This 143-nucleotide sequence from Paenibacillus lemnae belongs to the Rfam family "Group II catalytic intron D1-D4-4".

[Rfam]
RNA sequence: UAGCCGGUGAAAGUCCGGUCACAGGAGGGACCAAGCCCCUGUGUAGCUAGGAUACCUGCGUAUGGCGAAAUCUGUACGUAGAAGCGUAUCGACGAAAGCACCCGUCUGAAACGGGGCGAGCAACGUACCAGGCCGUAACAUAA
Numbered sequence: 001u002a003g004c005c006g007g008u009g010a011a012a013g014u015c016c017g018g019u020c021a022c023a024g025g026a027g028g029g030a031c032c033a034a035g036c037c038c039c040u041g042u043g044u045a046g047c048u049a050g051g052a053u054a055c056c057u058g059c060g061u062a063u064g065g066c067g068a069a070a071u072c073u074g075u076a077c078g079u080a081g082a083a084g085c086g087u088a089u090c091g092a093c094g095a096a097a098g099c100a101c102c103c104g105u106c107u108g109a110a111a112c113g114g115g116g117c118g119a120g121c122a123a124c125g126u127a128c129c130a131g132g133c134c135g136u137a138a139c140a141u142a143a
Base pairs, nucleotide, nucleotide: 020043021042022041023040024039051090052089053088054087055086056081057080058079059078060077061076065072098117101115102114103113104112105111120136121135
Dot-bracket structure: ...................(((((..............))))).......(((((((((((...(......)...))))))....))))).......(..(((((.....))))).)..((.............)).......
It scores 95 bits against the family's covariance model.
From the family's description: Group II introns are found in rRNA, tRNA and mRNA of organelles in fungi, plants and protists, and also in mRNA in bacteria.
On this family, see Bonen and Vogel, Trends Genet 2001: "The ins and outs of group II introns".
Gene Ontology term of the family: Group II intron splicing.
The source organism's lineage runs through Bacteria, Bacillati, Bacillota, Bacilli and Paenibacillus.